[Rfam]
RNA sequence: UAGGGAUGUCAGGGCCAGGAGCCCCCCCCCCAAGCCCAGGAUAACUCUAACUGUUGGGGGGCA
Numbered sequence: 001u002a003g004g005g006a007u008g009u010c011a012g013g014g015c016c017a018g019g020a021g022c023c024c025c026c027c028c029c030c031c032a033a034g035c036c037c038a039g040g041a042u043a044a045c046u047c048u049a050a051c052u053g054u055u056g057g058g059g060g061g062c063a
Stems, first nucleotide, its partner, number of pairs: 008042003012037004018030002022061005028056001
Dot-bracket structure: .......[[[.[[[[..[[..(((((.(]]...]]]]..]]].............))))))..

A member of the RNA family "Gag/pol translational readthrough site" from Mustela putorius, 63 nucleotides long.
It is annotated as a cis-regulatory element.
Rfam 15.1 lists 3,368 matches to the family in 94 species.
Gene Ontology term of the family: viral translational readthrough.
The organism belongs to Mustela putorius, within Eukaryota.
The family's consensus secondary structure is taken from published work.
A search with the family's covariance model found it, with a score of 71 bits.